[Rfam]
RNA sequence: GCGGGGCUGCCCGGUGCGUGAGAGUAUGUAUUCCCGGGCCCAUACGAUCUCCUCGGGAGCUGUCCCUGACUGGGUCCCUGGACCCGGACAUAUGGCGCCCACCUACUUAGUAGGUGUCCCGGGAUCGAAAAUUCCACGGCCAAGGUGGCUCCGCA
Numbered sequence: 001g002c003g004g005g006g007c008u009g010c011c012c013g014g015u016g017c018g019u020g021a022g023a024g025u026a027u028g029u030a031u032u033c034c035c036g037g038g039c040c041c042a043u044a045c046g047a048u049c050u051c052c053u054c055g056g057g058a059g060c061u062g063u064c065c066c067u068g069a070c071u072g073g074g075u076c077c078c079u080g081g082a083c084c085c086g087g088a089c090a091u092a093u094g095g096c097g098c099c100c101a102c103c104u105a106c107u108u109a110g111u112a113g114g115u116g117u118c119c120c121g122g123g124a125u126c127g128a129a130a131a132u133u134c135c136a137c138g139g140c141c142a143a144g145g146u147g148g149c150u151c152c153g154c155a
Base pairs, nucleotide, nucleotide: 002153003152004151005150006149007148008147009146010145011144013141014140015139017138018137019136031124032123033122034121036119037118038117039114040113055100056099057098059096060095061094062093063092068089070087071086072085073084074083075082076081

Record summary
6S / SsrS RNA: a 155-nucleotide RNA from Allobosea sp. LC85. It is annotated as a non-coding RNA gene. The match comes from Rfam's covariance-model search (70 bits). E. coli 6S RNA was the first non coding RNA to be sequenced, but its function was unknown until recently. It consists of 184 nucleotides that fold into an extended hairpin structure with a large single-stranded internal bulge.